This 252-nucleotide RNA sequence from Trifolium subterraneum belongs to the Rfam family "MIR2655 microRNA precursor family". The match comes from Rfam's covariance-model search (138 bits). Taxonomically the source falls in Trifolium (Eukaryota, Streptophytina, Gunneridae, Fabales). Its family is annotated with RISC complex and miRNA-mediated post-transcriptional gene silencing in the Gene Ontology.
[Rfam]
RNA sequence: CCCUUAUCUUUUAAAAGUUUCAAGUUGGUCCCUUAUCUUUAUUUUAGGUUUCAAGUUGGUCCCUUCCGUCAAUUUUUUAACUAUUUCCGUUAAGUUUUGACACGUGGCAAACUAAUUUGGGCACGUGGCACACUUAGACAGAUGACACGUGUCCAAAUUUAACGGUAACAGUACAAAAAUUGACGGAAGGGACCAAUUUGAAACCUAAAAAAAAGAUAAGGGACCAAUUUGAAACUUUUAAAAAAUAAGGGA
Numbered sequence: 001c002c003c004u005u006a007u008c009u010u011u012u013a014a015a016a017g018u019u020u021c022a023a024g025u026u027g028g029u030c031c032c033u034u035a036u037c038u039u040u041a042u043u044u045u046a047g048g049u050u051u052c053a054a055g056u057u058g059g060u061c062c063c064u065u066c067c068g069u070c071a072a073u074u075u076u077u078u079a080a081c082u083a084u085u086u087c088c089g090u091u092a093a094g095u096u097u098u099g100a101c102a103c104g105u106g107g108c109a110a111a112c113u114a115a116u117u118u119g120g121g122c123a124c125g126u127g128g129c130a131c132a133c134u135u136a137g138a139c140a141g142a143u144g145a146c147a148c149g150u151g152u153c154c155a156a157a158u159u160u161a162a163c164g165g166u167a168a169c170a171g172u173a174c175a176a177a178a179a180u181u182g183a184c185g186g187a188a189g190g191g192a193c194c195a196a197u198u199u200g201a202a203a204c205c206u207a208a209a210a211a212a213a214a215g216a217u218a219a220g221g222g223a224c225c226a227a228u229u230u231g232a233a234a235c236u237u238u239u240a241a242a243a244a245a246u247a248a249g250g251g252a
Stems, first nucleotide, its partner, number of pairs: 002250006023229003027225003031221010042210002045207003